[Rfam]
RNA: SAH (S-adenosyl-L-homocysteine) riboswitch aptamer
RNA sequence: GCCGCCGAGGGGCGCUGCAAGUCCGUGCGCUGGUGCAUCGCGUAGCGGAAUCAGGCUCGGCGGAAUCGGGUUCCAUUCCGACACUGCGCCCGCCCCAA
Numbered sequence: 001g002c003c004g005c006c007g008a009g010g011g012g013c014g015c016u017g018c019a020a021g022u023c024c025g026u027g028c029g030c031u032g033g034u035g036c037a038u039c040g041c042g043u044a045g046c047g048g049a050a051u052c053a054g055g056c057u058c059g060g061c062g063g064a065a066u067c068g069g070g071u072u073c074c075a076u077u078c079c080g081a082c083a084c085u086g087c088g089c090c091c092g093c094c095c096c097a098a
Base pairs, nucleotide, nucleotide: 002063003062004061005060006059007058008057022049023048024047025046026045